The family of this 375-nucleotide RNA sequence from Parashewanella spongiae is "Bacterial RNase P class A".
[Rfam]
RNA sequence: UGAGUCAAUUGGACAGUCGCCGCGUUAGUAAUAACGGGGAGGAAAGUCCGGGCUCCAAUGAGCAGGGUGCCAGAUAACGUCUGGGCGGCGUGAGCCGACGACAAGUGCAGCAGAGAGAAGACCGCCACUUCACUUGUGUAGUGGUAAGGGUGAAAGGGUGCGGUAAGAGCGCACCGAGCCACUGGUAACAGUUGGUUGCAAGGUAAACUCCACUCGGAGCAAGAUCAAAUAGGGUUCCACCUCUUAUUUAUAAGAGCAGGCGUGGCUCGCGUUGGAACCGGGUAGAUCGCUUGAGCCUGUGAGCGAUUGCAGGCCUAGAUGAAUGACUGUCACUCGAAAGAGGUACAAGACCCGGCUUACAGAUUGUCUCGAUGA
Dot-bracket structure: ((((.(((((((((((((.((.(((((....))))).))....[[[.[[[[[((((...[[[[.((((((((((.....)))))(((((....)))).)((...((((.............((((((((.((....)).))))))..)).......((((((.......))))))(((((((((....))).))))).)...))..)))))))))))))...((((......((((((....................(((((.]]]]))))))))))).....))))......((((((((....))))))))..........)))))))...................]]]]]]]].).))))).))))....
Numbered sequence: 001u002g003a004g005u006c007a008a009u010u011g012g013a014c015a016g017u018c019g020c021c022g023c024g025u026u027a028g029u030a031a032u033a034a035c036g037g038g039g040a041g042g043a044a045a046g047u048c049c050g051g052g053c054u055c056c057a058a059u060g061a062g063c064a065g066g067g068u069g070c071c072a073g074a075u076a077a078c079g080u081c082u083g084g085g086c087g088g089c090g091u092g093a094g095c096c097g098a099c100g101a102c103a104a105g106u107g108c109a110g111c112a113g114a115g116a117g118a119a120g121a122c123c124g125c126c127a128c129u130u131c132a133c134u135u136g137u138g139u140a141g142u143g144g145u146a147a148g149g150g151u152g153a154a155a156g157g158g159u160g161c162g163g164u165a166a167g168a169g170c171g172c173a174c175c176g177a178g179c180c181a182c183u184g185g186u187a188a189c190a191g192u193u194g195g196u197u198g199c200a201a202g203g204u205a206a207a208c209u210c211c212a213c214u215c216g217g218a219g220c221a222a223g224a225u226c227a228a229a230u231a232g233g234g235u236u237c238c239a240c241c242u243c244u245u246a247u248u249u250a251u252a253a254g255a256g257c258a259g260g261c262g263u264g265g266c267u268c269g270c271g272u273u274g275g276a277a278c279c280g281g282g283u284a285g286a287u288c289g290c291u292u293g294a295g296c297c298u299g300u301g302a303g304c305g306a307u308u309g310c311a312g313g314c315c316u317a318g319a320u321g322a323a324u325g326a327c328u329g330u331c332a333c334u335c336g337a338a339a340g341a342g343g344u345a346c347a348a349g350a351c352c353c354g355g356c357u358u359a360c361a362g363a364u365u366g367u368c369u370c371g372a373u374g375a
Stems, first nucleotide, its partner, number of pairs: 001371004006366005011360001012331007020039002023036005044358003048355005053219004060268004065215005070084005085099001086097004100210002105208002107204002122149002124145006131138002157175006176199001177197005182191003223288004233279006259273005295314008
The family's consensus secondary structure is taken from published work. The match comes from Rfam's covariance-model search (329 bits). The family's RNA type in Rfam is ribozyme.